[Rfam]
Overview:
Connexin-43 internal ribosome entry site (IRES): a 194-nucleotide sequence from Leptosomus discolor. The family has 14 seed sequences and 657 matches in Rfam 15.1. It scores 116 bits against the family's covariance model.
Nucleotides: 194
Base pairs, nucleotide, nucleotide: 003019004018007015008014009013029146030145031144033142034141036139038137039136040135041132042131043130044129049125050124051123052122056120057119072100073099074098075097076096077095101116103114104113105112156191158186161182162181163180166176167175168174
Number, partner (000 for none) and nucleotide at each position: 001000a002000a003019c004018u005000u006000u007015u008014a009013c010000g011000a012000g013009g014008u015007a016000u017000c018004a019003g020000c021000a022000c023000u024000u025000u026000u027000c028000u029146u030145u031144c032000a033142u034141u035000a036139g037000u038137g039136g040135g041132g042131a043130a044129g045000g046000a047000a048000g049125g050124a051123u052122g053000a054000a055000a056120a057119a058000u059000a060000c061000a062000a063000a064000a065000c066000a067000g068000c069000a070000g071000u072100a073099g074098a075097c076096u077095u078000u079000u080000a081000a082000a083000g084000u085000u086000u087000a088000a089000a090000u091000a092000g093000a094000c095077a096076g097075g098074u099073c100072u101116g102000a103114g104113u105112g106000c107000c108000u109000g110000a111000a112105c113104g114103u115000g116101c117000u118000c119057u120056u121000c122052c123051g124050u125049u126000u127000u128000a129044c130043u131042u132041u133000a134000a135040c136039c137038u138000u139036c140000c141034a142033a143000a144031g145030a146029a147000g148000u149000a150000u151000u152000c153000u154000g155000a156191u157000c158186c159000a160000g161182u162181u163180u164000c165000a166176c167175u168174g169000c170000u171000g172000a173000u174168c175167a176166g177000c178000a179000a180163g181162g182161g183000u184000a185000a186158g187000u188000u189000g190000a191156a192000a193000g194000u